7SK RNA: a 314-nucleotide sequence from Penelope pileata. A search with the family's covariance model found it, with a score of 248 bits. About the family: 7SK was discovered as an abundant small nuclear RNA in the mid-70s but a possible function has only recently been suggested. Two independent studies have found that 7SK RNA binds the CDK9/cyclin T complex (known as elongation factor P-TEFb). Pairs were carried over by alignment from the consensus structure, which is taken from published work. A reference for the family is Wassarman and Steitz (1991), "Structural analyses of the 7SK ribonucleoprotein (RNP), the most abundant human small RNP of unknown function", Mol Cell Biol. Its Rfam clan is "7SK clan".

RNA sequence: AUGUGAGGGUGAUCUGCUGUGAUAUCUGUCACCCCAUUGAUUGCCAGGGUUGAUUUGGCUGAUCUGGCCGGCUAGGCAGGUGUCCCCUUCCUCCCUCACCACUCCAUGUAUGUCCCUCCUGAAGCUGCACACUCAGUGACCUUCCCCAGAAGAGACAUACUGUUCAUCUUUCAAGGGUCUGUGUUAGCUGCACUCCCGUGCUAGAUCCUCCAACAAGCUCAGGGUGCAUUUGUAGGAGAACGUAGGGUAGUUAAGCUUCCAGGACUGCAAACUCAUCCAAGUGAGGCACCGCAUGGGGCAGUCUGCCAUUGUUU
Numbered sequence: 001a002u003g004u005g006a007g008g009g010u011g012a013u014c015u016g017c018u019g020u021g022a023u024a025u026c027u028g029u030c031a032c033c034c035c036a037u038u039g040a041u042u043g044c045c046a047g048g049g050u051u052g053a054u055u056u057g058g059c060u061g062a063u064c065u066g067g068c069c070g071g072c073u074a075g076g077c078a079g080g081u082g083u084c085c086c087c088u089u090c091c092u093c094c095c096u097c098a099c100c101a102c103u104c105c106a107u108g109u110a111u112g113u114c115c116c117u118c119c120u121g122a123a124g125c126u127g128c129a130c131a132c133u134c135a136g137u138g139a140c141c142u143u144c145c146c147c148a149g150a151a152g153a154g155a156c157a158u159a160c161u162g163u164u165c166a167u168c169u170u171u172c173a174a175g176g177g178u179c180u181g182u183g184u185u186a187g188c189u190g191c192a193c194u195c196c197c198g199u200g201c202u203a204g205a206u207c208c209u210c211c212a213a214c215a216a217g218c219u220c221a222g223g224g225u226g227c228a229u230u231u232g233u234a235g236g237a238g239a240a241c242g243u244a245g246g247g248u249a250g251u252u253a254a255g256c257u258u259c260c261a262g263g264a265c266u267g268c269a270a271a272c273u274c275a276u277c278c279a280a281g282u283g284a285g286g287c288a289c290c291g292c293a294u295g296g297g298g299c300a301g302u303c304u305g306c307c308a309u310u311g312u313u314u
Stems, first nucleotide, its partner, number of pairs: 001103001003099007011090002016086001021084010032071002034067003039064004043059003113155002115152001117150002119136004124132001187256003193250002196247002199244003208238004213233005279314003283309001285307003288302002291299002